[Rfam]
The family of this 70-nucleotide sequence from Sorex araneus is "Small nucleolar RNA SNORD82".
A reference for the family is Galardi et al. (2002), "Purified box C/D snoRNPs are able to reproduce site-specific 2'-O-methylation of target RNA in vitro", Mol Cell Biol.
snoRNA U82 or Z25 is found in both humans and mice.
Gene Ontology terms of the family: nucleolus and RNA processing.

RNA sequence: AGCACAAUGAUGAAUGACAAAGGGACUUAAUGCUGAGACUUGAUGUCACAUUCUUGAUAUUCUGAUGUGU
Numbered sequence: 001a002g003c004a005c006a007a008u009g010a011u012g013a014a015u016g017a018c019a020a021a022g023g024g025a026c027u028u029a030a031u032g033c034u035g036a037g038a039c040u041u042g043a044u045g046u047c048a049c050a051u052u053c054u055u056g057a058u059a060u061u062c063u064g065a066u067g068u069g070u
Stems, first nucleotide, its partner, number of pairs: 002070005
Dot-bracket structure: .(((((...........................................................)))))